Record summary:
The family of this 135-nucleotide sequence from Haplochromis burtoni is "Small nucleolar RNA SNORA9".

[Rfam]
RNA sequence: UUGCAGACCUUUCCAGCGAGGCUCAGCCUGCAGUUGCUCUGUCCUUUCCUGUUGUGUCUGCUAGAGAAAUGUGAGGCUGUUUGAGGCCCUGCUGUGACCACUCGCUGCAGGGUUGUAGGUAAACCUCUGACAAAG
Numbered sequence: 001u002u003g004c005a006g007a008c009c010u011u012u013c014c015a016g017c018g019a020g021g022c023u024c025a026g027c028c029u030g031c032a033g034u035u036g037c038u039c040u041g042u043c044c045u046u047u048c049c050u051g052u053u054g055u056g057u058c059u060g061c062u063a064g065a066g067a068a069a070u071g072u073g074a075g076g077c078u079g080u081u082u083g084a085g086g087c088c089c090u091g092c093u094g095u096g097a098c099c100a101c102u103c104g105c106u107g108c109a110g111g112g113u114u115g116u117a118g119g120u121a122a123a124c125c126u127c128u129g130a131c132a133a134a135g
Stems, first nucleotide, its partner, number of pairs: 003061006019045003025038003073127004087112006094105003
The family has 36 seed sequences and 1,202 matches in Rfam 15.1. The family's RNA type in Rfam is H/ACA-box small nucleolar RNA. Its Rfam clan is "SNORA9 clan".